[Rfam]
RNA sequence: GCCGUGAGGAGCUUCCUAAUCUUGAUGCUGAAUACAUAAUCCACCCUACUGAGUCUCAGUAGUUUGGUGGCAGUCUUAUACACUAUGGUAAGCCUGUAAUUAAAUAGUAUAAGCAAUGUUUAAUUAUAUUACUAGCCUUAGAUGAAAAUUAGUUGCCUACAGUGCUACCCCUUUCGGAGUAAUUGAAAGAUCGCUUUGACGAGCCUAAUGUGGAAGAGCCGUUUGGAGUGCCUGUAGUGUUAUAAUUAGUAAUUGUAGAUAGGUGUAGUUUUGAUAGGGAUUCAC
Numbered sequence: 001g002c003c004g005u006g007a008g009g010a011g012c013u014u015c016c017u018a019a020u021c022u023u024g025a026u027g028c029u030g031a032a033u034a035c036a037u038a039a040u041c042c043a044c045c046c047u048a049c050u051g052a053g054u055c056u057c058a059g060u061a062g063u064u065u066g067g068u069g070g071c072a073g074u075c076u077u078a079u080a081c082a083c084u085a086u087g088g089u090a091a092g093c094c095u096g097u098a099a100u101u102a103a104a105u106a107g108u109a110u111a112a113g114c115a116a117u118g119u120u121u122a123a124u125u126a127u128a129u130u131a132c133u134a135g136c137c138u139u140a141g142a143u144g145a146a147a148a149u150u151a152g153u154u155g156c157c158u159a160c161a162g163u164g165c166u167a168c169c170c171c172u173u174u175c176g177g178a179g180u181a182a183u184u185g186a187a188a189g190a191u192c193g194c195u196u197u198g199a200c201g202a203g204c205c206u207a208a209u210g211u212g213g214a215a216g217a218g219c220c221g222u223u224u225g226g227a228g229u230g231c232c233u234g235u236a237g238u239g240u241u242a243u244a245a246u247u248a249g250u251a252a253u254u255g256u257a258g259a260u261a262g263g264u265g266u267a268g269u270u271u272u273g274a275u276a277g278g279g280a281u282u283c284a285c
Stems, first nucleotide, its partner, number of pairs: 075092005096127011131269004141254003148246004159235004167229002170226002175221003194203002204213002
Alphacoronavirus 3'UTR: a 285-nucleotide RNA from Alphacoronavirus miniopteri. Rfam's curators put it in the seed alignment. About the family: The 3' UTR of alphacoronaviruses consists of two small hairpins (PK-SL2) which can form an alternate conformation (PK-SL1) where the loop region of the second hairpin interacts with the stem of the first hairpin. PK-SL2 has been confirmed in HCoV-229E and HCoV-NL63 by in vitro structure probing experiments. Downstream of this pseudoknot lies the hypervariable region (HVR), which is supported by many covarying basepairs in alphacoronaviruses. Its family is annotated with viral RNA genome replication in the Gene Ontology. Taxonomically the source falls in Alphacoronavirus miniopteri (Viruses, Pisuviricota, Nidovirales, Minunacovirus). It is annotated as a cis-regulatory element.